[Rfam]
RNA: MIR473 microRNA precursor family
Organism: Corchorus capsularis
RNA sequence: UUUCUUCACUCUCCUUUUAAGGCUUCAAGCUUUAGUUUGAUUUAGCUUGAAGCCUUUAGAGGAGAGUGAAAAA
Numbered sequence: 001u002u003u004c005u006u007c008a009c010u011c012u013c014c015u016u017u018u019a020a021g022g023c024u025u026c027a028a029g030c031u032u033u034a035g036u037u038u039g040a041u042u043u044a045g046c047u048u049g050a051a052g053c054c055u056u057u058a059g060a061g062g063a064g065a066g067u068g069a070a071a072a073a
Stems, first nucleotide, its partner, number of pairs: 006069010017058001019056008